[Rfam]
RNA sequence: UGGGGCGUGGCCAAGUGGUAAGGCAACGGGUUUUGGUCCCGCUAUUCGGAGGUUCGAAUCCUUCCGUCCCAG
Numbered sequence: 001u002g003g004g005g006c007g008u009g010g011c012c013a014a015g016u017g018g019u020a021a022g023g024c025a026a027c028g029g030g031u032u033u034u035g036g037u038c039c040c041g042c043u044a045u046u047c048g049g050a051g052g053u054u055c056g057a058a059u060c061c062u063u064c065c066g067u068c069c070c071a072g
Stems, first nucleotide, its partner, number of pairs: 001071007010024003027041004048064005
Annotation: This 72-nucleotide sequence from Oenothera villaricae belongs to the Rfam family "tRNA". Gene Ontology term of the family: triplet codon-amino acid adaptor activity. The organism belongs to Oenothera, within Eukaryota. Rfam classes the family as a transfer RNA. The base pairs follow the family's consensus structure, which is taken from published work.